[Rfam]
RNA sequence: UUUCCCAUGUUAACCCCGGGUAAACAAGAAAAUUGCUUAAAAAAUUUUGCCUGAUAACCCAUACACGCAGCAAUGGCAUAAGACGUUUUGUGUAAUCAGGCAUUUAACGGGCUGCGGGUUGCAGCCUGGACGAAAGACGGGAUUGGUUCAUUCAGGUUCACACUGGCGGUUCCCCCCUUUUAAAAGUGCUGUUUUUCCAGCUGAAAAACAGGCUGCCGAGAAUUUGCGCCCCUGUAGCUACCGACAUCCGGGAGGUUGACGGCUUUGCCAUGAGACCUGGGGUCAUCGGUUGACCACGUCCAGCGUUACUACUGCCCGUAGCUUUGUCACUAA
Numbered sequence: 001u002u003u004c005c006c007a008u009g010u011u012a013a014c015c016c017c018g019g020g021u022a023a024a025c026a027a028g029a030a031a032a033u034u035g036c037u038u039a040a041a042a043a044a045u046u047u048u049g050c051c052u053g054a055u056a057a058c059c060c061a062u063a064c065a066c067g068c069a070g071c072a073a074u075g076g077c078a079u080a081a082g083a084c085g086u087u088u089u090g091u092g093u094a095a096u097c098a099g100g101c102a103u104u105u106a107a108c109g110g111g112c113u114g115c116g117g118g119u120u121g122c123a124g125c126c127u128g129g130a131c132g133a134a135a136g137a138c139g140g141g142a143u144u145g146g147u148u149c150a151u152u153c154a155g156g157u158u159c160a161c162a163c164u165g166g167c168g169g170u171u172c173c174c175c176c177c178u179u180u181u182a183a184a185a186g187u188g189c190u191g192u193u194u195u196u197c198c199a200g201c202u203g204a205a206a207a208a209c210a211g212g213c214u215g216c217c218g219a220g221a222a223u224u225u226g227c228g229c230c231c232c233u234g235u236a237g238c239u240a241c242c243g244a245c246a247u248c249c250g251g252g253a254g255g256u257u258g259a260c261g262g263c264u265u266u267g268c269c270a271u272g273a274g275a276c277c278u279g280g281g282g283u284c285a286u287c288g289g290u291u292g293a294c295c296a297c298g299u300c301c302a303g304c305g306u307u308a309c310u311a312c313u314g315c316c317c318g319u320a321g322c323u324u325u326g327u328c329a330c331u332a333a
Stems, first nucleotide, its partner, number of pairs: 003031001006028001008026001015020001048102007058092001060090002065086003070077002109324011127302006139176003148169002151166002185214003189211004194206004215290005228283005242261002245258002248255002
The record is a 333-nucleotide RNA from Erwinia tracheiphila, which matches "RNase E 5' UTR element" in Rfam. The literature on the family includes a 2000 paper in Genes Dev by Diwa et al., "An evolutionarily conserved RNA stem-loop functions as a sensor that directs feedback regulation of RNase E gene expression". It scores 205 bits against the family's covariance model. The family's consensus secondary structure is taken from published work. Rfam classes the family as a cis-regulatory element. This family represents a conserved element found in the 5' UTR of RNase E mRNA. RNase E is a key regulatory enzyme in the pathway of mRNA degradation in E. coli that is able to auto-regulate the degradation of its own mRNA in response to changes in RNase E activity. This rne 5' UTR element acts as a sensor of cellular RNase E concentration enabling tight regulation of RNase E concentration and synthesis.